[Rfam]
RNA sequence: AAACCAAUGAAAGCGCCAGUGCUGAGAAAAUCGGACGCCCCACAUUCCCAGCAGACGAGGUGGAGGAGUAUCGAAACAUUCGGCGGAUGCCUCCCGAUCGAAAUGCCCGAUUGUAACUUUUGCCUACAAAACAUGCGAGCAAUCGGAUGGACAACAAGGUAAAAAGGCUAUUCU
Numbered sequence: 001a002a003a004c005c006a007a008u009g010a011a012a013g014c015g016c017c018a019g020u021g022c023u024g025a026g027a028a029a030a031u032c033g034g035a036c037g038c039c040c041c042a043c044a045u046u047c048c049c050a051g052c053a054g055a056c057g058a059g060g061u062g063g064a065g066g067a068g069u070a071u072c073g074a075a076a077c078a079u080u081c082g083g084c085g086g087a088u089g090c091c092u093c094c095c096g097a098u099c100g101a102a103a104u105g106c107c108c109g110a111u112u113g114u115a116a117c118u119u120u121u122g123c124c125u126a127c128a129a130a131a132c133a134u135g136c137g138a139g140c141a142a143u144c145g146g147a148u149g150g151a152c153a154a155c156a157a158g159g160u161a162a163a164a165a166g167g168c169u170a171u172u173c174u
Base pairs, nucleotide, nucleotide: 020053021052022051023050024049026047027046062094063093064092065091066090071083072082073081074080095113096112097111098110099109100108118164119163120162121161122160123159124158132149133148134147136145137144138143
glmS glucosamine-6-phosphate activated ribozyme aptamer: a 174-nucleotide sequence from Sporosarcina luteola. Pairs were carried over by alignment from the consensus structure, which is taken from published work. It scores 101 bits against the family's covariance model.